[Rfam]
RNA sequence: GUCACUACAUGAUGCACUCUGGUUAAACCCUUCCAGGCAGCCAGAGUGGUGAAGAUCUGUGAC
Number, nucleotide and partner (000 for none) at each position: 001g063002u062003c061004a060005c059006u000007a000008c000009a000010u000011g000012a000013u000014g000015c048016a047017c046018u045019c044020u043021g042022g041023u040024u000025a000026a000027a000028c000029c037030c036031u035032u000033c000034c000035a031036g030037g029038c000039a000040g023041c022042c021043a020044g019045a018046g017047u016048g015049g000050u000051g000052a000053a000054g000055a000056u000057c000058u000059g005060u004061g003062a002063c001
RNA: Selenocysteine insertion sequence 1
Organism: Neomonachus schauinslandi